[Rfam]
SAM riboswitch aptamer (S box leader): a 110-nucleotide sequence from Clostridium paridis. A search with the family's covariance model found it, with a score of 80 bits. Taxonomically the source falls in Clostridium (Bacteria, Bacillota, Clostridia, Clostridiaceae).
RNA sequence: AACUUAUCUAGAGUGGUGGAGGGACUGGCCCAAUGAAACCCAGCAACCUAUAAGUUAUCAUUUGACUUAGUGGGUGCUAAUUCCUGCAGUGUUUAACUGGAAGAUAAGGA
Number, nucleotide and partner (000 for none) at each position: 001a000002a000003c108004u107005u106006a105007u104008c103009u000010a000011g000012a000013g041014u000015g040016g039017u038018g000019g000020a000021g031022g030023g029024a000025c086026u000027g084028g083029c023030c022031c021032a000033a000034u000035g000036a000037a000038a017039c016040c015041c013042a078043g077044c076045a075046a000047c074048c073049u070050a000051u000052a067053a000054g000055u000056u000057a000058u000059c000060a000061u000062u000063u000064g000065a000066c000067u052068u000069a000070g049071u000072g000073g048074g047075u045076g044077c043078u042079a000080a000081u000082u102083c028084c027085u000086g025087c099088a098089g097090u096091g000092u000093u000094u000095a000096a090097c089098u088099g087100g000101a000102a082103g008104a007105u006106a005107a004108g003109g000110a000